[Rfam]
RNA sequence: UUGCACAGUGAACAUCCAAGUGUGCUUUAUAGUUUCCUUGGCUUUGACUCUGCGCUAGAGCAAUAUCUGUUCUUUUCCUCUGCAUUGAAAGGAUUAGUUAUCCUCUAAAAAUUUUUUUUCCUUACUGAUUUUAGAGAGAGAGGAAGAAA
Numbered sequence: 001u002u003g004c005a006c007a008g009u010g011a012a013c014a015u016c017c018a019a020g021u022g023u024g025c026u027u028u029a030u031a032g033u034u035u036c037c038u039u040g041g042c043u044u045u046g047a048c049u050c051u052g053c054g055c056u057a058g059a060g061c062a063a064u065a066u067c068u069g070u071u072c073u074u075u076u077c078c079u080c081u082g083c084a085u086u087g088a089a090a091g092g093a094u095u096a097g098u099u100a101u102c103c104u105c106u107a108a109a110a111a112u113u114u115u116u117u118u119u120c121c122u123u124a125c126u127g128a129u130u131u132u133a134g135a136g137a138g139a140g141a142g143g144a145a146g147a148a149a
Base pairs, nucleotide, nucleotide: 003055004054006052007051008050010049013046014045016041017040018039019038020037022035024033025032026031057073058072059071060070061069062068079135080134081133082132083127084126086124089123090122091121092120093119

A member of the RNA family "Small nucleolar RNA SNORA22" from Molossus molossus, 149 nucleotides long. The base pairs follow the family's consensus structure, which was predicted with RNAfold. From the family's description: ACA22 is a member of the H/ACA class of snoRNA that guide the sites of modification of uridines to pseudouridines. A search with the family's covariance model found it, with a score of 100 bits. Lineage of the source: Eukaryota > Vertebrata > Tetrapoda > Laurasiatheria > Molossus. The family's RNA type in Rfam is H/ACA-box small nucleolar RNA.